[Rfam]
RNA sequence: UUGAGGAUGAUGAAAUCAAUCAGACGGAUUCCCAUUGUUUUUUCAUAUGAGAACAUAUAUAACCAGCUACUUCUGACUCUA
Number, nucleotide and partner (000 for none) at each position: 001u081002u000003g079004a078005g077006g000007a000008u000009g000010a000011u000012g000013a000014a000015a000016u000017c000018a000019a000020u000021c000022a000023g000024a000025c000026g000027g000028a000029u000030u000031c000032c000033c000034a000035u000036u000037g000038u000039u000040u000041u000042u000043u000044c000045a000046u000047a000048u000049g000050a000051g000052a000053a000054c000055a000056u000057a000058u000059a000060u000061a000062a000063c000064c000065a000066g000067c000068u000069a000070c000071u000072u000073c000074u000075g000076a000077c005078u004079c003080u000081a001
RNA: Small nucleolar RNA R12
Organism: Corchorus capsularis